[Rfam]
RNA sequence: AGUUGUGGUAGUUUCUUUCUGGUACAUUUGUUAAGUUUUCAAAUGGGCCUAACUCUGCCACAUAUAUUGGAAGGAGCUGGCAAAGGCUUAAAGACAGAAAGAUCUCUCUUGAGCUUUCGUGUAUUGAUAUUAGCUCUUAUAGUA
Numbered sequence: 001a002g003u004u005g006u007g008g009u010a011g012u013u014u015c016u017u018u019c020u021g022g023u024a025c026a027u028u029u030g031u032u033a034a035g036u037u038u039u040c041a042a043a044u045g046g047g048c049c050u051a052a053c054u055c056u057g058c059c060a061c062a063u064a065u066a067u068u069g070g071a072a073g074g075a076g077c078u079g080g081c082a083a084a085g086g087c088u089u090a091a092a093g094a095c096a097g098a099a100a101g102a103u104c105u106c107u108c109u110u111g112a113g114c115u116u117u118c119g120u121g122u123a124u125u126g127a128u129a130u131u132a133g134c135u136c137u138u139a140u141a142g143u144a
Stems, first nucleotide, its partner, number of pairs: 005061007021049003025045006073137006079088003105129001107127002
Dot-bracket structure: ....(((((((.........(((.((((((.........)))))).))).....)))))))...........(((((((((....)))................(.((.................)).)..)))))).......
Shown here is a 144-nucleotide RNA from Fukomys damarensis, a member of the family "Small nucleolar RNA SNORA12". Rfam describes the family as follows. U108 belongs to the H/ACA family of snoRNAs. The sequence is predicted to guide the pseudouridylation of the U372 residue in the 28S rRNA subunit. However it has not been reported as a pseudouridylation site. It scores 131 bits against the family's covariance model. NCBI's taxonomy places the organism under Eukaryota, Metazoa, Dipnotetrapodomorpha, Glires, Fukomys. The family's RNA type in Rfam is H/ACA-box small nucleolar RNA. On this family, see Gu et al., Nucleic Acids Res 2005: "A novel experimental approach for systematic identification of box H/ACA snoRNAs from eukaryotes".